[Rfam]
RNA sequence: UGCCACCUUGUCGGGAGAAACCGGUUCACUCCGGUGCCGAAGGAGCAACCGCCCCGGAAACUCUCAGGCCAAAGGACCACAAGGUGCCG
Numbered sequence: 001u002g003c004c005a006c007c008u009u010g011u012c013g014g015g016a017g018a019a020a021c022c023g024g025u026u027c028a029c030u031c032c033g034g035u036g037c038c039g040a041a042g043g044a045g046c047a048a049c050c051g052c053c054c055c056g057g058a059a060a061c062u063c064u065c066a067g068g069c070c071a072a073a074g075g076a077c078c079a080c081a082a083g084g085u086g087c088c089g
Stems, first nucleotide, its partner, number of pairs: 006084006013078002021034004036069003039065002043063003049057002
Glycine riboswitch aptamer: an 89-nucleotide RNA sequence from Rhizobium sp. RU36D. The base pairs follow the family's consensus structure. Gene Ontology term of the family: glycine biosynthetic process. It scores 60 bits against the family's covariance model. Taxonomically the source falls in Rhizobium (Bacteria, Pseudomonadati, Alphaproteobacteria, Hyphomicrobiales).